[Rfam]
RNA: TPP riboswitch aptamer (THI element)
Organism: Vibrio ishigakensis
RNA sequence: UCGUAUUAGUCGGGGAGCCUUUAGGGCUGAGAUCGUUGAAUUAAGUAAGCGAACCCGUUGAACCUGAUUCAGCUAGCACUGACGUAGGGAACUAGUCGCCACACAAG
Dot-bracket structure: .....(((((((((..((((...))))......((((..........))))..)))).....((((..((((......))))..))))..)))))............